[Rfam]
RNA sequence: GUAAGCCGGAGGGCAGCUACGGCCUUUUAUGGCUGAGGAAACUCCCCCCAUCACCCUAAACCCCGGUGCCGCAAGGCAUCGGCCGAGAGGCCGGACCCUGGCGCAGAAACGACACGUCUCCCGAUGGAUGAUAAUGAGGCCCCAAUUAAAGGGGUUGAUUGACAUCGGGAGGAUCGGUGAAACGGCCAAUCCGGGGGAUGCAAGGGUGAAAAUCUGCCAAUGAUAUGAGGCAGAGAUUGCCCGCUUAGAUGAAUGCUGCCUAAACAGAAGGGGGGUUACUCCCGGCAUGC
Numbered sequence: 001g002u003a004a005g006c007c008g009g010a011g012g013g014c015a016g017c018u019a020c021g022g023c024c025u026u027u028u029a030u031g032g033c034u035g036a037g038g039a040a041a042c043u044c045c046c047c048c049c050a051u052c053a054c055c056c057u058a059a060a061c062c063c064c065g066g067u068g069c070c071g072c073a074a075g076g077c078a079u080c081g082g083c084c085g086a087g088a089g090g091c092c093g094g095a096c097c098c099u100g101g102c103g104c105a106g107a108a109a110c111g112a113c114a115c116g117u118c119u120c121c122c123g124a125u126g127g128a129u130g131a132u133a134a135u136g137a138g139g140c141c142c143c144a145a146u147u148a149a150a151g152g153g154g155u156u157g158a159u160u161g162a163c164a165u166c167g168g169g170a171g172g173a174u175c176g177g178u179g180a181a182a183c184g185g186c187c188a189a190u191c192c193g194g195g196g197g198a199u200g201c202a203a204g205g206g207u208g209a210a211a212a213u214c215u216g217c218c219a220a221u222g223a224u225a226u227g228a229g230g231c232a233g234a235g236a237u238u239g240c241c242c243g244c245u246u247a248g249a250u251g252a253a254u255g256c257u258g259c260c261u262a263a264a265c266a267g268a269a270g271g272g273g274g275g276u277u278a279c280u281c282c283c284g285g286c287a288u289g290c
Base pairs, nucleotide, nucleotide: 001290002289003288005286006285007284008283009282010280011279012260013259014258015257016256017255020035021034022033023032024031040277041276042275044274045273046272047271048270049200050199051198052197061196062195063194064193065192066079067078068077069076070075080093081092082091083090084089094191095190099188100187101186102185115176116175118171119170120169121168122167123166124165125164141152142151204242205241206240207239214233215232216231217230218229